Shown here is a 133-nucleotide sequence from Otolemur garnettii, a member of the family "Small nucleolar RNA SNORA61".
About the family: ACA61 is a member of the H/ACA class of snoRNA that guide the sites of modification of uridines to pseudouridines.
Its family is annotated with RNA processing and nucleolus in the Gene Ontology.
By type it is an H/ACA-box small nucleolar RNA.

RNA sequence: AUUCUCCUGAUUCUCCUUCCCAUCAGAUCAGAAUACUGGUCUUGGUGGUCAUAAAAGGAGGAAAAGUAAUACCGAAGCUGACCUCACUAUGCUGUAGUGUGGUAUAUAAAGUGUGGGCGAGUUGCAAACAAGG
Numbered sequence: 001a002u003u004c005u006c007c008u009g010a011u012u013c014u015c016c017u018u019c020c021c022a023u024c025a026g027a028u029c030a031g032a033a034u035a036c037u038g039g040u041c042u043u044g045g046u047g048g049u050c051a052u053a054a055a056a057g058g059a060g061g062a063a064a065a066g067u068a069a070u071a072c073c074g075a076a077g078c079u080g081a082c083c084u085c086a087c088u089a090u091g092c093u094g095u096a097g098u099g100u101g102g103u104a105u106a107u108a109a110a111g112u113g114u115g116g117g118c119g120a121g122u123u124g125c126a127a128a129c130a131a132g133g
Base pairs, nucleotide, nucleotide: 003061004060005059006058007057020048021047022046023045024044026041027040028039029038078121079120082117083116084115093111095109

It scores 115 bits against the family's covariance model.